[Rfam]
RNA sequence: GAUAGGCCCCUGUCUUUACCGUGAUUGGACUCUGACGCUGGGUCAACUAGCCUUGACCACGUGGUUCUUCGCGCGCGGAACCUGAGGCGGUCCGAGCCACGAGGGGGGAGGCUCGGACCGCCUUUC
Numbered sequence: 001g002a003u004a005g006g007c008c009c010c011u012g013u014c015u016u017u018a019c020c021g022u023g024a025u026u027g028g029a030c031u032c033u034g035a036c037g038c039u040g041g042g043u044c045a046a047c048u049a050g051c052c053u054u055g056a057c058c059a060c061g062u063g064g065u066u067c068u069u070c071g072c073g074c075g076c077g078g079a080a081c082c083u084g085a086g087g088c089g090g091u092c093c094g095a096g097c098c099a100c101g102a103g104g105g106g107g108g109a110g111g112c113u114c115g116g117a118c119c120g121c122c123u124u125u126c
Base pairs, nucleotide, nucleotide: 001014002013003012004011005010016050017049018048021032023030033045034044035043036042058075060073061072062071063070064069077082086122087121088120089119090118091117092116093115094114095113096112097111098110100107